Shown here is a 129-nucleotide sequence from Chrysochloris asiatica, a member of the family "Small nucleolar RNA SNORA28". Taxonomically the source falls in Chrysochloris (Eukaryota, Craniata, Euteleostomi, Chrysochloridae). From the family's description: ACA28 is a member of the H/ACA class of snoRNA that guide the sites of modification of uridines to pseudouridines. On this family, see Huttenhofer et al., EMBO J 2001: "RNomics: an experimental approach that identifies 201 candidates for novel, small, non-messenger RNAs in mouse". The family has 26 seed sequences and 922 matches in Rfam 15.1.
RNA sequence: CACGCAUACUCUGUGGCAGAUGAUCAAAACUCUCUGUCACAAUUUGCGCUUGCUAUAGCAAGAAAGUCUAACCUAUUUCAGUGGUGUUUUCUCCUCAGUGAGACUAGCCGUUAUACAGACUUUAACAGU
Numbered sequence: 001c002a003c004g005c006a007u008a009c010u011c012u013g014u015g016g017c018a019g020a021u022g023a024u025c026a027a028a029a030c031u032c033u034c035u036g037u038c039a040c041a042a043u044u045u046g047c048g049c050u051u052g053c054u055a056u057a058g059c060a061a062g063a064a065a066g067u068c069u070a071a072c073c074u075a076u077u078u079c080a081g082u083g084g085u086g087u088u089u090u091c092u093c094c095u096c097a098g099u100g101a102g103a104c105u106a107g108c109c110g111u112u113a114u115a116c117a118g119a120c121u122u123u124a125a126c127a128g129u
Base pairs, nucleotide, nucleotide: 009048011046012041013040014039015038017036018035019034020033022031064122065121066120067119068118069117074115075114076113079110081108082107090103091102092101093100